[Rfam]
RNA sequence: ACCCCGCCACAACGGCUUCCUGACGUGGCGGUGUCAUUUUUGAAUGGAGCA
Dot-bracket structure: ...(((((((..(([[[.[[))..)))))))..............]]]]].
Numbered sequence: 001a002c003c004c005c006g007c008c009a010c011a012a013c014g015g016c017u018u019c020c021u022g023a024c025g026u027g028g029c030g031g032u033g034u035c036a037u038u039u040u041u042g043a044a045u046g047g048a049g050c051a
Stems, first nucleotide, its partner, number of pairs: 004031007013022002015050003019047002

Shown here is a 51-nucleotide RNA sequence from Pelagimonas phthalicica, a member of the family "SAM/SAH riboswitch aptamer".
The literature on the family includes a 2019 paper in Nucleic Acids Res by Weickhmann et al., "The structure of the SAM/SAH-binding riboswitch".
The source organism's lineage runs through Bacteria, Alphaproteobacteria, Rhodobacterales, Roseobacteraceae and Pelagimonas.
It scores 60 bits against the family's covariance model.